RNA: U7 small nuclear RNA
RNA sequence: AGCUAUUAUAGCUCAUUUAGACUUUUUUUCUAGUAGGUUUUUUGACUUUGGUAGAAAAACCUAU
Numbered sequence: 001a002g003c004u005a006u007u008a009u010a011g012c013u014c015a016u017u018u019a020g021a022c023u024u025u026u027u028u029u030c031u032a033g034u035a036g037g038u039u040u041u042u043u044g045a046c047u048u049u050g051g052u053a054g055a056a057a058a059a060c061c062u063a064u
Base pairs, nucleotide, nucleotide: 036061037060038059039058040057041056042055043054045052046051